[Rfam]
RNA sequence: GAGGCAUCCGGUCACCACCCGUCAGCGCGUUGCGCCCGCGGGUGUGUUUUGC
Numbered sequence: 001g002a003g004g005c006a007u008c009c010g011g012u013c014a015c016c017a018c019c020c021g022u023c024a025g026c027g028c029g030u031u032g033c034g035c036c037c038g039c040g041g042g043u044g045u046g047u048u049u050u051g052c
Base pairs, nucleotide, nucleotide: 016044017043018042019041020040021039022038025035026034027033028032
RNA: ffh sRNA
Organism: Pelagibacterium lentulum